[Rfam]
Nucleotides: 091
Base pairs, nucleotide, nucleotide: 004085005084006083007082008081009080010079
Number, partner (000 for none) and nucleotide at each position: 001000u002000u003000u004085a005084g006083g007082a008081g009080c010079c011000a012000a013000u014000g015000a016000u017000g018000u019000a020000u021000u022000c023000a024000a025000a026000a027000u028000g029000u030000c031000u032000g033000a034000a035000c036000c037000u038000g039000u040000c041000u042000g043000a044000a045000g046000c047000a048000u049000c050000g051000c052000a053000g054000u055000g056000a057000u058000g059000g060000a061000a062000c063000c064000u065000c066000u067000g068000u069000g070000u071000g072000g073000u074000c075000c076000a077000g078000a079010g080009g081008c082007u083006c084005c085004u086000c087000u088000g089000c090000c091000g
Rfam assigns this 91-nucleotide RNA sequence from Hipposideros armiger to the family "Small nucleolar RNA SNORD91 family".
The match comes from Rfam's covariance-model search (96 bits).
The pairing is the family consensus, mapped onto this sequence.
The source organism's lineage runs through Eukaryota, Opisthokonta, Euteleostomi, Amniota and Hipposideros.